RNA sequence: GUGGGCGGAAGCUCAUUGUAGAGGUCACAUGCUGAGUGUUCGUCACUCCACCAAUCACCUCGGGGAAGGUCUGAGACAAGAGCCAAUCAUCACCCCUGCAGGGUGUCACCUGACUCAGGUGAGCGAGUGAACAGAAAGAAUGGGUCCGUCGGCAGGUCGUUGCAGGAGAAACUGGCAGGUGCAGCUCUCCAGCGCCCCAAGGUGGAUGUGACGCCGACCGACUUGGAAUCGCUCGCGGCUGGCAGAUGAGUGCGAUGUAUGAGGUGGGGCACAGCUCCAGAACCCAAUUCAGACUACUCUCCACCCAC
Numbered sequence: 001g002u003g004g005g006c007g008g009a010a011g012c013u014c015a016u017u018g019u020a021g022a023g024g025u026c027a028c029a030u031g032c033u034g035a036g037u038g039u040u041c042g043u044c045a046c047u048c049c050a051c052c053a054a055u056c057a058c059c060u061c062g063g064g065g066a067a068g069g070u071c072u073g074a075g076a077c078a079a080g081a082g083c084c085a086a087u088c089a090u091c092a093c094c095c096c097u098g099c100a101g102g103g104u105g106u107c108a109c110c111u112g113a114c115u116c117a118g119g120u121g122a123g124c125g126a127g128u129g130a131a132c133a134g135a136a137a138g139a140a141u142g143g144g145u146c147c148g149u150c151g152g153c154a155g156g157u158c159g160u161u162g163c164a165g166g167a168g169a170a171a172c173u174g175g176c177a178g179g180u181g182c183a184g185c186u187c188u189c190c191a192g193c194g195c196c197c198c199a200a201g202g203u204g205g206a207u208g209u210g211a212c213g214c215c216g217a218c219c220g221a222c223u224u225g226g227a228a229u230c231g232c233u234c235g236c237g238g239c240u241g242g243c244a245g246a247u248g249a250g251u252g253c254g255a256u257g258u259a260u261g262a263g264g265u266g267g268g269g270c271a272c273a274g275c276u277c278c279a280g281a282a283c284c285c286a287a288u289u290c291a292g293a294c295u296a297c298u299c300u301c302c303a304c305c306c307a308c
Stems, first nucleotide, its partner, number of pairs: 001308004007302003012263005021061004034048005071292005081240004091105005106122006123236007143222001145220001265279006
Dot-bracket structure: ((((..(((..(((((....((((.........(((((.....))))).........)))).........[[[[[.....((((......(((((.....)))))((((((.....))))))(((((((.............(.(..........................................................................).).......)))))))))))..................))))).((((((...))))))........]]]]].......)))..))))
The family of this 308-nucleotide RNA sequence from Parambassis ranga is "Nuclear RNase P". The organism belongs to Parambassis, within Eukaryota. From the family's description: Ribonuclease P (RNase P) is a ubiquitous endoribonuclease, found in archaea, bacteria and eukarya as well as chloroplasts and mitochondria. Its best characterised activity is the generation of mature 5'-ends of tRNAs by cleaving the 5'-leader elements of precursor-tRNAs. Cellular RNase Ps are ribonucleoproteins. RNA from bacterial RNase Ps retains its catalytic activity in the absence of the protein subunit, i.e. it is a ribozyme.